RNA sequence: UAAGAUUCGACCUGCUCAUGAAAUUAAAUACACAUUAGUGCUGUUUAUCAGCUUCCUCUCUUGAAUAUCCAACGACAUGGGAGUUAAAUCACAGCACAAAAUGU
Numbered sequence: 001u002a003a004g005a006u007u008c009g010a011c012c013u014g015c016u017c018a019u020g021a022a023a024u025u026a027a028a029u030a031c032a033c034a035u036u037a038g039u040g041c042u043g044u045u046u047a048u049c050a051g052c053u054u055c056c057u058c059u060c061u062u063g064a065a066u067a068u069c070c071a072a073c074g075a076c077a078u079g080g081g082a083g084u085u086a087a088a089u090c091a092c093a094g095c096a097c098a099a100a101a102u103g104u
Base pairs, nucleotide, nucleotide: 038097039096040095041094042093043092050085051084052083053082054081055080057077059075060074

Rfam assigns this 104-nucleotide RNA sequence from Solanum tuberosum to the family "Small nucleolar RNA snoR97". NCBI's taxonomy places the organism under Eukaryota, Streptophytina, Tracheophyta, lamiids, Solanum. The base pairs follow the family's consensus structure, which was predicted with WAR. It is annotated as an H/ACA-box small nucleolar RNA.